[Rfam]
A member of the RNA family "Archaeal RNase P", 298 nucleotides long.
RNA sequence: GGGAGCAGGAGGGUUGCUGACAGUGUUCGACACUGAGGAAAGUCCCCUCUCCAAGAUGCGAGCGGCCUGGUUAACGCCAGGGACCCGGGAGGGUCGGCUCUGGAACAGAAACGAACCGUGUGGCGAGUUAACGGUGAAUCCCGAAGGAGGAGGUUUCGCCAACAUGGAUGAAACGGCCACCCCCGCUGGAGCAAGUCCAAGCAGGCCCGUCAAGCAGCAUCUGCUAGGGCCGGGUAGGAUGCUAAGUUGAAUGCAACCAGCCGUAAGGUGAACAGAAAGGGGCUUACUCCCUGCACCC
Dot-bracket structure: (((.(((((((((((((...(((((.....)))))....[[[.[[[[[((((..[.....((((((((((......)))))(((((....)))))((...(((............((((.((((((............((.....))........)))))))..))).........))).)))))))))))...((((.....(((((.............]....))))).....))))............))))))...................]]]]]]]].)).))))).)))
Numbered sequence: 001g002g003g004a005g006c007a008g009g010a011g012g013g014u015u016g017c018u019g020a021c022a023g024u025g026u027u028c029g030a031c032a033c034u035g036a037g038g039a040a041a042g043u044c045c046c047c048u049c050u051c052c053a054a055g056a057u058g059c060g061a062g063c064g065g066c067c068u069g070g071u072u073a074a075c076g077c078c079a080g081g082g083a084c085c086c087g088g089g090a091g092g093g094u095c096g097g098c099u100c101u102g103g104a105a106c107a108g109a110a111a112c113g114a115a116c117c118g119u120g121u122g123g124c125g126a127g128u129u130a131a132c133g134g135u136g137a138a139u140c141c142c143g144a145a146g147g148a149g150g151a152g153g154u155u156u157c158g159c160c161a162a163c164a165u166g167g168a169u170g171a172a173a174c175g176g177c178c179a180c181c182c183c184c185g186c187u188g189g190a191g192c193a194a195g196u197c198c199a200a201g202c203a204g205g206c207c208c209g210u211c212a213a214g215c216a217g218c219a220u221c222u223g224c225u226a227g228g229g230c231c232g233g234g235u236a237g238g239a240u241g242c243u244a245a246g247u248u249g250a251a252u253g254c255a256a257c258c259a260g261c262c263g264u265a266a267g268g269u270g271a272a273c274a275g276a277a278a279g280g281g282g283c284u285u286a287c288u289c290c291c292u293g294c295a296c297c298c
Stems, first nucleotide, its partner, number of pairs: 001298003005294005010288002012258006021035005040285003044282005049191004055222001061187005066081005082095005096182002101179003116167003119162001121161006139147002195240004204231005
The literature on the family includes a 1999 paper in Nucleic Acids Res by Brown, "The Ribonuclease P Database". Rfam describes the family as follows. Ribonuclease P (RNase P) is a ubiquitous endoribonuclease, found in archaea, bacteria and eukarya as well as chloroplasts and mitochondria. Its family is annotated with multimeric ribonuclease P complex, ribonuclease P activity and tRNA processing in the Gene Ontology. The family's RNA type in Rfam is ribozyme. It is one of the family's seed sequences.